[Rfam]
RNA: Bacterial RNase P class A
RNA sequence: GGAGUGGGGUCGGGCGGUCGCCGCCUCGCCCCUGUGGGCGAGGGGGAGGAAAGUCCGAACACCACAGGGCAGCGAGCCUGCUAACGGCAGGGCAUCCGUCCCGUAAGGGGCGGGUGACGACAAGUGCAACAGAGAACAGACCAGCCAGCGGACGGUGCUCGGCACCGUUGCGGGUGAUGGGUGAAACGGUGCGGUAAGAGCGCACCAGCGCAUGUGGUGACACAUGCGGCUAGGCAAACUCCUCGCGGUGCAAGACCAAAUAGGGAGGCGUCAGAGGGCGGCCCGUCCGAGCGAAAGCCCUCGGGCUUUCCACGUCUCCGGGUAGGUCGCUUGACCCGUCUGGCGACAGAUGGGCUAGAGGAAUGAUCGCCACUCCGAAGAUCCUUCGGAGGACAGAAUUCGGCUUACAGACCCUCUUCCGCU
Number, nucleotide and partner (000 for none) at each position: 001g419002g418003a417004g416005u000006g414007g000008g413009g412010u411011c410012g408013g371014g370015c369016g368017g367018u366019c365020g000021c046022c045023g000024c043025c042026u041027c040028g039029c038030c000031c000032c000033u000034g000035u000036g000037g000038g029039c028040g027041a026042g025043g024044g000045g022046g021047a000048g000049g000050a000051a406052a405053g404054u000055c403056c402057g401058a400059a399060c250061a249062c248063c247064a000065c000066a000067g000068g000069g000070c000071a000072g246073c245074g244075a243076g242077c091078c090079u089080g088081c087082u000083a000084a000085c000086g000087g081088c080089a079090g078091g077092g118093c116094a115095u114096c113097c112098g111099u110100c109101c108102c107103g000104u000105a000106a000107g102108g101109g100110g099111c098112g097113g096114g095115u094116g093117a000118c092119g241120a240121c000122a000123a000124g239125u238126g235127c234128a000129a000130c000131a000132g000133a000134g000135a000136a000137c000138a000139g000140a000141c180142c179143a000144g175145c174146c173147a000148g171149c170150g169151g168152a000153c000154g000155g000156u000157g000158c000159u000160c000161g000162g000163c000164a000165c000166c000167g000168u151169u150170g149171c148172g000173g146174g145175u144176g000177a000178u000179g142180g141181g000182u000183g000184a000185a000186a000187c000188g206189g205190u204191g203192c202193g201194g000195u000196a000197a000198g000199a000200g000201c193202g192203c191204a190205c189206c188207a000208g230209c228210g227211c226212a225213u224214g223215u222216g221217g000218u000219g000220a000221c216222a215223c214224a213225u212226g211227c210228g209229g000230c208231u000232a000233g000234g127235c126236a000237a000238a125239c124240u120241c119242c076243u075244c074245g073246c072247g063248g062249u061250g060251c000252a000253a000254g328255a327256c326257c325258a000259a000260a000261u000262a000263g000264g319265g318266a317267g316268g315269c314270g000271u000272c000273a000274g000275a000276g000277g000278g000279c000280g000281g000282c000283c000284c000285g000286u000287c000288c000289g000290a000291g000292c000293g000294a309295a308296a307297g306298c305299c304300c000301u000302c000303g000304g299305g298306c297307u296308u295309u294310c000311c000312a000313c000314g269315u268316c267317u266318c265319c264320g000321g000322g000323u000324a000325g257326g256327u255328c254329g000330c000331u000332u000333g000334a000335c354336c353337c352338g351339u350340c349341u348342g347343g000344c000345g000346a000347c342348a341349g340350a339351u338352g337353g336354g335355c000356u000357a000358g000359a000360g000361g000362a000363a000364u000365g019366a018367u017368c016369g015370c014371c013372a000373c000374u000375c000376c000377g000378a000379a000380g000381a000382u000383c000384c000385u000386u000387c000388g000389g000390a000391g000392g000393a000394c000395a000396g000397a000398a000399u059400u058401c057402g056403g055404c053405u052406u051407a000408c012409a000410g011411a010412c009413c008414c006415u000416c004417u003418u002419c001420c000421g000422c000423u000